[Rfam]
RNA sequence: CGAGCAUAGUGAUGAUUGUUUUAUUCCGAUAUUAUUCAUGAAUGGAAUUUCAAACCUCCUACUCAUUCUGA
Numbered sequence: 001c002g003a004g005c006a007u008a009g010u011g012a013u014g015a016u017u018g019u020u021u022u023a024u025u026c027c028g029a030u031a032u033u034a035u036u037c038a039u040g041a042a043u044g045g046a047a048u049u050u051c052a053a054a055c056c057u058c059c060u061a062c063u064c065a066u067u068c069u070g071a
Stems, first nucleotide, its partner, number of pairs: 006066002009063001025046002
Small nucleolar RNA Z105: a 71-nucleotide sequence from Cynara cardunculus. A search with the family's covariance model found it, with a score of 47 bits. The base pairs follow the family's consensus structure, which was predicted with CMfinder. NCBI's taxonomy places the organism under Eukaryota, Streptophytina, Euphyllophyta, Spermatophyta, Cynara cardunculus subsp. cardunculus. For this family Rfam cites "The high diversity of snoRNAs in plants: identification and comparative study of 120 snoRNA genes from Oryza sativa" (Chen et al., Nucleic Acids Res, 2003).